[Rfam]
RNA sequence: GAUUCGUUGAUUUAAAUCAAACCUGUUAUGAUUUAAGUUAAUGAGCCACCACCAACCAUGCUACUCGCUGAGCUCGACUCCGAGUAGUGUGGUUAUUUU
Numbered sequence: 001g002a003u004u005c006g007u008u009g010a011u012u013u014a015a016a017u018c019a020a021a022c023c024u025g026u027u028a029u030g031a032u033u034u035a036a037g038u039u040a041a042u043g044a045g046c047c048a049c050c051a052c053c054a055a056c057c058a059u060g061c062u063a064c065u066c067g068c069u070g071a072g073c074u075c076g077a078c079u080c081c082g083a084g085u086a087g088u089g090u091g092g093u094u095a096u097u098u099u
Stems, first nucleotide, its partner, number of pairs: 003045017054094014070080003
23S methyl RNA motif: a 99-nucleotide sequence from Streptococcus downei. NCBI's taxonomy places the organism under Bacteria, Bacillota, Bacilli, Streptococcaceae, Streptococcus downei. The match comes from Rfam's covariance-model search (92 bits).